[Rfam]
RNA sequence: GGACAUGAGUGUGAUCUGGCUGCAACAUCUGUCACACCAUUUAUCACCAGGGCUGGUUGAGCUGAUCUGGCUGGCUAGAUGAGUGUCUCCUUCCUCCUUCACCACCCCAUGGCUGCCCUCCCAAAGCUGUGUAUUCAGUCAAAGAGGAUGACCUUACCCAAUAGAGAUGGCACUGUUCUUCAGUCAAGGAUAUAUGGUAGUUGCAUUCCCUUGCUAGAUCCACCAAACAAGCUCAAGGUGCAUUUGUAGGAGAACAUAAGGUAAUCAAGCUUCACAAACAGCAGACACAUCCAAGUAAGACCUUUGUUUUAAUUUUUAGGAAAAAAUUGUCUUUCCUC
Numbered sequence: 001g002g003a004c005a006u007g008a009g010u011g012u013g014a015u016c017u018g019g020c021u022g023c024a025a026c027a028u029c030u031g032u033c034a035c036a037c038c039a040u041u042u043a044u045c046a047c048c049a050g051g052g053c054u055g056g057u058u059g060a061g062c063u064g065a066u067c068u069g070g071c072u073g074g075c076u077a078g079a080u081g082a083g084u085g086u087c088u089c090c091u092u093c094c095u096c097c098u099u100c101a102c103c104a105c106c107c108c109a110u111g112g113c114u115g116c117c118c119u120c121c122c123a124a125a126g127c128u129g130u131g132u133a134u135u136c137a138g139u140c141a142a143a144g145a146g147g148a149u150g151a152c153c154u155u156a157c158c159c160a161a162u163a164g165a166g167a168u169g170g171c172a173c174u175g176u177u178c179u180u181c182a183g184u185c186a187a188g189g190a191u192a193u194a195u196g197g198u199a200g201u202u203g204c205a206u207u208c209c210c211u212u213g214c215u216a217g218a219u220c221c222a223c224c225a226a227a228c229a230a231g232c233u234c235a236a237g238g239u240g241c242a243u244u245u246g247u248a249g250g251a252g253a254a255c256a257u258a259a260g261g262u263a264a265u266c267a268a269g270c271u272u273c274a275c276a277a278a279c280a281g282c283a284g285a286c287a288c289a290u291c292c293a294a295g296u297a298a299g300a301c302c303u304u305u306g307u308u309u310u311a312a313u314u315u316u317u318a319g320g321a322a323a324a325a326a327u328u329g330u331c332u333u334u335c336c337u338c
Stems, first nucleotide, its partner, number of pairs: 001108002006101004011096001013093002018090002025086004030081004035074001037070003043066003047061001115171002118166003121138001124135001126134001139161001146157001148155001200270003206264002209261005221252001223250002227247005294337002297333005303325003
Background
The family of this 338-nucleotide sequence from Psilopogon haemacephalus is "7SK RNA". The family's RNA type in Rfam is non-coding RNA gene. The source organism's lineage runs through Eukaryota, Gnathostomata, Euteleostomi, Sauria and Psilopogon. It scores 195 bits against the family's covariance model. About the family: 7SK was discovered as an abundant small nuclear RNA in the mid-70s but a possible function has only recently been suggested.